[Rfam]
RNA sequence: UUUAUAAUUAUAGCGCCCGAACUCAUAAUUGGACGGAAUAGAUUAUGAGUUGACGAGGAGAGGGAUUAUCGAACUUUCGGCGGAUACCCUCAGGCUAGAGCUAUUAGCCUAUAACUAAAUUCUUAAAAGUUAGGAGCAAUCCUGAUGACAAAGGAAUUUAAGAAUAGCUAU
Numbered sequence: 001u002u003u004a005u006a007a008u009u010a011u012a013g014c015g016c017c018c019g020a021a022c023u024c025a026u027a028a029u030u031g032g033a034c035g036g037a038a039u040a041g042a043u044u045a046u047g048a049g050u051u052g053a054c055g056a057g058g059a060g061a062g063g064g065a066u067u068a069u070c071g072a073a074c075u076u077u078c079g080g081c082g083g084a085u086a087c088c089c090u091c092a093g094g095c096u097a098g099a100g101c102u103a104u105u106a107g108c109c110u111a112u113a114a115c116u117a118a119a120u121u122c123u124u125a126a127a128a129g130u131u132a133g134g135a136g137c138a139a140u141c142c143u144g145a146u147g148a149c150a151a152a153g154g155a156a157u158u159u160a161a162g163a164a165u166a167g168c169u170a171u
Stems, first nucleotide, its partner, number of pairs: 020051008029042001060091005069080004092110006116160006129146007
Shown here is a 171-nucleotide RNA sequence from Orenia metallireducens, a member of the family "glmS glucosamine-6-phosphate activated ribozyme aptamer". Taxonomically the source falls in Orenia (Bacteria, Bacillati, Bacillota, Clostridia). By type it is a riboswitch.